[Rfam]
RNA sequence: CAGGCCGACGCGGGAGAGCCCGGCGCGACCGGGCACCGAAGGAGCAAUCCUCCCCGAUAAUCUCUCAGGUCCUCGUACCGCGUCGAACUG
Numbered sequence: 001c002a003g004g005c006c007g008a009c010g011c012g013g014g015a016g017a018g019c020c021c022g023g024c025g026c027g028a029c030c031g032g033g034c035a036c037c038g039a040a041g042g043a044g045c046a047a048u049c050c051u052c053c054c055c056g057a058u059a060a061u062c063u064c065u066c067a068g069g070u071c072c073u074c075g076u077a078c079c080g081c082g083u084c085g086a087a088c089u090g
Base pairs, nucleotide, nucleotide: 006085007084008083009082010081011080012079013078019033020032021031022030035070036069037068038066039065042064043063044062048057049056
Glycine riboswitch aptamer: a 90-nucleotide RNA sequence from Herbiconiux flava.
Gene Ontology term of the family: glycine biosynthetic process.
Taxonomically the source falls in Herbiconiux (Bacteria, Actinomycetes, Micrococcales, Microbacteriaceae).